[Rfam]
RNA sequence: AGCUUUGUGCAGUGGCAGUAUCGUAGUCAAUGAGGUUUAUCUGAGACGCGAUUAUUGCUAAUUAAAUGGAAAUACUAAUCAGCCUGAGGCAAUAACAAUAAUAUUUAUAGAAUCCGUACUACGUGCCAGGCAU
Numbered sequence: 001a002g003c004u005u006u007g008u009g010c011a012g013u014g015g016c017a018g019u020a021u022c023g024u025a026g027u028c029a030a031u032g033a034g035g036u037u038u039a040u041c042u043g044a045g046a047c048g049c050g051a052u053u054a055u056u057g058c059u060a061a062u063u064a065a066a067u068g069g070a071a072a073u074a075c076u077a078a079u080c081a082g083c084c085u086g087a088g089g090c091a092a093u094a095a096c097a098a099u100a101a102u103a104u105u106u107a108u109a110g111a112a113u114c115c116g117u118a119c120u121a122c123g124u125g126c127c128a129g130g131c132a133u
Base pairs, nucleotide, nucleotide: 020052021051022050023049024048026047027046028045034042035041084110085109086108087106088105089104091102093100094099123133124132125131126130
RNA: U4 spliceosomal RNA